[Rfam]
RNA sequence: AUACCUGUGAGAAGUUGAGAUCCUGCGCAUUGGAAACAAGGAAACAACUUGUGCCUGAUCUUCAAA
Numbered sequence: 001a002u003a004c005c006u007g008u009g010a011g012a013a014g015u016u017g018a019g020a021u022c023c024u025g026c027g028c029a030u031u032g033g034a035a036a037c038a039a040g041g042a043a044a045c046a047a048c049u050u051g052u053g054c055c056u057g058a059u060c061u062u063c064a065a066a
Stems, first nucleotide, its partner, number of pairs: 018061005025054005030047003